[Rfam]
This 68-nucleotide RNA sequence belongs to the Rfam family "tRNA". The family's consensus secondary structure is taken from published work. On this family, see Hou, Trends Biochem Sci 1993: "The tertiary structure of tRNA and the development of the genetic code". Rfam classes the family as a transfer RNA. Transfer RNA (tRNA) molecules are approximately 80 nucleotides in length.
RNA sequence: ACUCUUUUAGUAUAAAUAGUACCGUUAACUUCCAAUUAACUAGUUUUGACAACAUUCAAAAAAGAGUA
Numbered sequence: 001a002c003u004c005u006u007u008u009a010g011u012a013u014a015a016a017u018a019g020u021a022c023c024g025u026u027a028a029c030u031u032c033c034a035a036u037u038a039a040c041u042a043g044u045u046u047u048g049a050c051a052a053c054a055u056u057c058a059a060a061a062a063a064g065a066g067u068a
Stems, first nucleotide, its partner, number of pairs: 001067007010022004024040005045060005
Dot-bracket structure: (((((((..((((.....)))).(((((.......)))))....(((((......)))))))))))).